[Rfam]
RNA sequence: UGAAAAAAAACGAUAAUCGCUCGUAUAUCAUCGGGAAUAAGGCCCGAUCGUCUCUACCCGAAAACCCUAAAUUUUCGGACUACGAGCUCCUGGGACCCAAGG
Numbered sequence: 001u002g003a004a005a006a007a008a009a010a011c012g013a014u015a016a017u018c019g020c021u022c023g024u025a026u027a028u029c030a031u032c033g034g035g036a037a038u039a040a041g042g043c044c045c046g047a048u049c050g051u052c053u054c055u056a057c058c059c060g061a062a063a064a065c066c067c068u069a070a071a072u073u074u075u076c077g078g079a080c081u082a083c084g085a086g087c088u089c090c091u092g093g094g095a096c097c098c099a100a101g102g
Base pairs, nucleotide, nucleotide: 019087020086021085022084023083024082025081030048031047032046033045034044035043058078059077060076061075062074063073064072
RNA: Purine riboswitch aptamer